[Rfam]
RNA sequence: CGGCGUCCGCGUGACUGGCGACUUGAGGUGGGCGACCACCGGGGAGCGCGGGCCCCAUAACGCCGCGCGCCUGGGCAUUUUUC
Numbered sequence: 001c002g003g004c005g006u007c008c009g010c011g012u013g014a015c016u017g018g019c020g021a022c023u024u025g026a027g028g029u030g031g032g033c034g035a036c037c038a039c040c041g042g043g044g045a046g047c048g049c050g051g052g053c054c055c056c057a058u059a060a061c062g063c064c065g066c067g068c069g070c071c072u073g074g075g076c077a078u079u080u081u082u083c
Base pairs, nucleotide, nucleotide: 003055005053006052007051008050009049010048011047012046015043016042017071018070019069020068028039029038030037031036060078062076063075064074

Rfam assigns this 83-nucleotide RNA from Phenylobacterium kunshanense to the family "ZMP/ZTP riboswitch aptamer (pfl RNA motif)".
Taxonomically the source falls in Phenylobacterium (Bacteria, Pseudomonadota, Alphaproteobacteria, Caulobacteraceae).